[Rfam]
A member of the RNA family "Small Cajal body specific RNA 4" from Arenaria interpres, 129 nucleotides long.
On this family, see Darzacq et al., EMBO J 2002: "Cajal body-specific small nuclear RNAs: a novel class of 2'-O-methylation and pseudouridylation guide RNAs".
The family is grouped with related families in Rfam's "SCARNA4 clan".
scaRNAs are a specific class of small nuclear RNAs which localise to the Cajal bodies and guide the modification of RNA polymerase II transcribed spliceosomal RNAs U1, U2, U4, U5 and U12. ACA26 belongs to the H/ACA box class of guide RNAs as it has the predicted hairpin-hinge-hairpin-tail structure, conserved H/ACA-box motifs and is found associated with GAR1.
RNA sequence: AGUGGAGGACUAAUCAGACCAAGUCUGACGAGUGAGACUGGGAUGACAAUAGCCUCCUAGAAGAAAAGGGAUGGGGAGAGCAGUCCUGCUUACAGAAAAGCAAAGGGCUGACUGUGCCAUUCAACAUUU
Numbered sequence: 001a002g003u004g005g006a007g008g009a010c011u012a013a014u015c016a017g018a019c020c021a022a023g024u025c026u027g028a029c030g031a032g033u034g035a036g037a038c039u040g041g042g043a044u045g046a047c048a049a050u051a052g053c054c055u056c057c058u059a060g061a062a063g064a065a066a067a068g069g070g071a072u073g074g075g076g077a078g079a080g081c082a083g084u085c086c087u088g089c090u091u092a093c094a095g096a097a098a099a100g101c102a103a104a105g106g107g108c109u110g111a112c113u114g115u116g117c118c119a120u121u122c123a124a125c126a127u128u129u
Stems, first nucleotide, its partner, number of pairs: 003059001004057005017044001019042001022039005068122003079113002081110007091102001093100001